[Rfam]
RNA sequence: AAAAGUCAGAUGCCGAAUUUCCUCACACUAGGAAAGCGGGGGAACCAUUUACGGGUGAAUUGAUCUUGCAACAGAGGGAUCAUAGGGGACCUUCUACCGAAUCCUUAAGCUAACCUCGCAGGCACUCGGAAGGAGUAUUG
Dot-bracket structure: ..........((((...((((((......))))))((((((...........(((.....(((((((........)))))))..((..........))...))).........)))))).))))................

Background:
This 140-nucleotide RNA sequence from Paenibacillus albilobatus belongs to the Rfam family "c-di-AMP riboswitch aptamer (ydaO/yuaA leader)".